A member of the RNA family "NiCo (Nickel/Cobalt) riboswitch aptamer" from Petrocella atlantisensis, 100 nucleotides long. The match comes from Rfam's covariance-model search (68 bits). Clan: NiCo_riboswitches.
RNA sequence: GAUUAUUAAACUGAACAGGCGAUGAACCGACUUGAGUUCAUAGGGCCGGGUUGCCAAUGGCGACAGCAGAUUAUGGUAAAAGCACAUCUGUGGGACAGUA
Numbered sequence: 001g002a003u004u005a006u007u008a009a010a011c012u013g014a015a016c017a018g019g020c021g022a023u024g025a026a027c028c029g030a031c032u033u034g035a036g037u038u039c040a041u042a043g044g045g046c047c048g049g050g051u052u053g054c055c056a057a058u059g060g061c062g063a064c065a066g067c068a069g070a071u072u073a074u075g076g077u078a079a080a081a082g083c084a085c086a087u088c089u090g091u092g093g094g095a096c097a098g099u100a
Stems, first nucleotide, its partner, number of pairs: 010099004016094001018047003022041006050064005066091006